[Rfam]
Background
A member of the RNA family "terC RNA" from Ectopseudomonas mendocina, 57 nucleotides long. The family's RNA type in Rfam is cis-regulatory element. Rfam's curators put it in the seed alignment.
RNA sequence: GCGUGACGCCGGGCCCCUCUGGCGGUGAGUUUCUCACCGUGAUGUCGGAGUCACUGA
Numbered sequence: 001g002c003g004u005g006a007c008g009c010c011g012g013g014c015c016c017c018u019c020u021g022g023c024g025g026u027g028a029g030u031u032u033c034u035c036a037c038c039g040u041g042a043u044g045u046c047g048g049a050g051u052c053a054c055u056g057a
Stems, first nucleotide, its partner, number of pairs: 006051002009048004022040008